[Rfam]
RNA sequence: GCGGUGAAGUGAAAAAAACACGGUCCGGUUGGUAGUCCGGAUGCACUUGCGUCAGCAAGUGUCGUAGCCUUCCCCCUCGGGAUGUCCAACACUUCGUAAGUUGAA
Numbered sequence: 001g002c003g004g005u006g007a008a009g010u011g012a013a014a015a016a017a018a019c020a021c022g023g024u025c026c027g028g029u030u031g032g033u034a035g036u037c038c039g040g041a042u043g044c045a046c047u048u049g050c051g052u053c054a055g056c057a058a059g060u061g062u063c064g065u066a067g068c069c070u071u072c073c074c075c076c077u078c079g080g081g082a083u084g085u086c087c088a089a090c091a092c093u094u095c096g097u098a099a100g101u102u103g104a105a
Base pairs, nucleotide, nucleotide: 004097005096006095007094008093009092010091011090023042024041025040026039027038028037043062044061045060046059047058048057049056050055071082072081073080074079

The family of this 105-nucleotide sequence from Paenibacillus albiflavus is "azaaromatic riboswitch aptamer (yjdF RNA)".
The organism belongs to Paenibacillus, within Bacteria.